7SK RNA: a 321-nucleotide RNA from Vidua chalybeata. Clan: 7SK clan.
RNA sequence: GGAGGGUGACCUGCUGUGAGAUCUGAUAGGCCACUGAUUGCGUGGUUUGAUCUGACUGAUCUGGCUAGCUUAGGCAGGUGUUCCCUUUCUUCCUUGAUAUUCCAUGUGUGUUCCUCUUAAUAAUGUGUGCUUGGUUAAUGAGUAGAGCCUCCCCAACAGACAUGGUAUUGUUCAUUGGUCAAAGGGGUGUGGUAGCUGUGCUCCCCUGCUGGAAGCUCUAAGUAAGCUCAAGAUCCAUUUGUGGAUAAAUGUAGGGUAAUCAAGCAUCCAAUACUGAACACAUCCAAAUGAGAAGCUGCAUGCACCAGUCUGCCACUGGCU
Numbered sequence: 001g002g003a004g005g006g007u008g009a010c011c012u013g014c015u016g017u018g019a020g021a022u023c024u025g026a027u028a029g030g031c032c033a034c035u036g037a038u039u040g041c042g043u044g045g046u047u048u049g050a051u052c053u054g055a056c057u058g059a060u061c062u063g064g065c066u067a068g069c070u071u072a073g074g075c076a077g078g079u080g081u082u083c084c085c086u087u088u089c090u091u092c093c094u095u096g097a098u099a100u101u102c103c104a105u106g107u108g109u110g111u112u113c114c115u116c117u118u119a120a121u122a123a124u125g126u127g128u129g130c131u132u133g134g135u136u137a138a139u140g141a142g143u144a145g146a147g148c149c150u151c152c153c154c155a156a157c158a159g160a161c162a163u164g165g166u167a168u169u170g171u172u173c174a175u176u177g178g179u180c181a182a183a184g185g186g187g188u189g190u191g192g193u194a195g196c197u198g199u200g201c202u203c204c205c206c207u208g209c210u211g212g213a214a215g216c217u218c219u220a221a222g223u224a225a226g227c228u229c230a231a232g233a234u235c236c237a238u239u240u241g242u243g244g245a246u247a248a249a250u251g252u253a254g255g256g257u258a259a260u261c262a263a264g265c266a267u268c269c270a271a272u273a274c275u276g277a278a279c280a281c282a283u284c285c286a287a288a289u290g291a292g293a294a295g296c297u298g299c300a301u302g303c304a305c306c307a308g309u310c311u312g313c314c315a316c317u318g319g320c321u
Stems, first nucleotide, its partner, number of pairs: 002095005008088002013084001018082002021079005027073001031064003036061004040056001111165002115160002117134004135156002142152001144150001195265003202258001204256006217245003222242005286321001290316001292314001295309004
The organism belongs to Vidua, within Eukaryota. Rfam describes the family as follows. 7SK was discovered as an abundant small nuclear RNA in the mid-70s but a possible function has only recently been suggested. Two independent studies have found that 7SK RNA binds the CDK9/cyclin T complex (known as elongation factor P-TEFb).